[Rfam]
RNA sequence: UCCUCGCUCAAAGAAUCGCAACGAAGCACACAAACAGAGUGCCACUUGGCAUCUCUUUCCGCACGCUUUGGGAGAAAGUCCCCGGACAUCGAUUCCUUGCGAAUCGCACUUUCAGCAACGAACCGCCAUAGAAGCGCGGCUUCCCUACCGCCUCCAGCAUCUUUCGCUCUCUUUUCCGUCUGCACUCUUAUUCUUCACUUUCUCGACGCCGCGGGUGGAGGGGCCGGCACUUGGGCGAUGAUAUGAGUCCGCUAGUUACCUUACUUGUGUUGCUAAGGGGACGUUGAGGAAUAUGAGGAGGAGGGAGAUGUCGAAAGGUGUUGGGUGGGGAGGGUCUUCUCGUCCAGUUUAUGGUUAUGCGAUUGCCUUCCCGCGUCCCGGUAAAACGGGUCGUAUGGGAGGUAACUCAAUGGGGCUUAUUCUUGAUGCGAGG
Numbered sequence: 001u002c003c004u005c006g007c008u009c010a011a012a013g014a015a016u017c018g019c020a021a022c023g024a025a026g027c028a029c030a031c032a033a034a035c036a037g038a039g040u041g042c043c044a045c046u047u048g049g050c051a052u053c054u055c056u057u058u059c060c061g062c063a064c065g066c067u068u069u070g071g072g073a074g075a076a077a078g079u080c081c082c083c084g085g086a087c088a089u090c091g092a093u094u095c096c097u098u099g100c101g102a103a104u105c106g107c108a109c110u111u112u113c114a115g116c117a118a119c120g121a122a123c124c125g126c127c128a129u130a131g132a133a134g135c136g137c138g139g140c141u142u143c144c145c146u147a148c149c150g151c152c153u154c155c156a157g158c159a160u161c162u163u164u165c166g167c168u169c170u171c172u173u174u175u176c177c178g179u180c181u182g183c184a185c186u187c188u189u190a191u192u193c194u195u196c197a198c199u200u201u202c203u204c205g206a207c208g209c210c211g212c213g214g215g216u217g218g219a220g221g222g223g224c225c226g227g228c229a230c231u232u233g234g235g236c237g238a239u240g241a242u243a244u245g246a247g248u249c250c251g252c253u254a255g256u257u258a259c260c261u262u263a264c265u266u267g268u269g270u271u272g273c274u275a276a277g278g279g280g281a282c283g284u285u286g287a288g289g290a291a292u293a294u295g296a297g298g299a300g301g302a303g304g305g306a307g308a309u310g311u312c313g314a315a316a317g318g319u320g321u322u323g324g325g326u327g328g329g330g331a332g333g334g335u336c337u338u339c340u341c342g343u344c345c346a347g348u349u350u351a352u353g354g355u356u357a358u359g360c361g362a363u364u365g366c367c368u369u370c371c372c373g374c375g376u377c378c379c380g381g382u383a384a385a386a387c388g389g390g391u392c393g394u395a396u397g398g399g400a401g402g403u404a405a406c407u408c409a410a411u412g413g414g415g416c417u418u419a420u421u422c423u424u425g426a427u428g429c430g431a432g433g
Base pairs, nucleotide, nucleotide: 002433003432004431005430006429007428008426009425010424011423014364015363016362017361018360019359022070023069024068025067026066027065037055038054039053040051041050042049043048076418077417078416080415081414082413083412100106101105255335256334260332261331262330264328265327270324271323272322281319282318284316305312306311366402367401368400369399370398371397
RNA: RNase MRP